This 135-nucleotide RNA sequence from Alectura lathami belongs to the Rfam family "Small Cajal body specific RNA 3".
Its Rfam clan is "SCARNA3 clan".
By type it is a small Cajal body RNA.
The literature on the family includes a 2001 paper in EMBO J by Huttenhofer et al., "RNomics: an experimental approach that identifies 201 candidates for novel, small, non-messenger RNAs in mouse".

RNA sequence: UUUGGGACCAGUUGGGACCAGCUGUGGGCAAAAGAAGAGUGUUUUGUCCACUGUUGCAGGCUUCCUAGAGUAAAGAGGAGGUCUCUGUCUGCUUUAGGAGAGCCAACUGAACCGGAUCGUUCCCCUCCAUACAUG
Numbered sequence: 001u002u003u004g005g006g007a008c009c010a011g012u013u014g015g016g017a018c019c020a021g022c023u024g025u026g027g028g029c030a031a032a033a034g035a036a037g038a039g040u041g042u043u044u045u046g047u048c049c050a051c052u053g054u055u056g057c058a059g060g061c062u063u064c065c066u067a068g069a070g071u072a073a074a075g076a077g078g079a080g081g082u083c084u085c086u087g088u089c090u091g092c093u094u095u096a097g098g099a100g101a102g103c104c105a106a107c108u109g110a111a112c113c114g115g116a117u118c119g120u121u122c123c124c125c126u127c128c129a130u131a132c133a134u135g
Stems, first nucleotide, its partner, number of pairs: 004065003008060002011057002024051006034043002077128005085119001087117003091113001093111005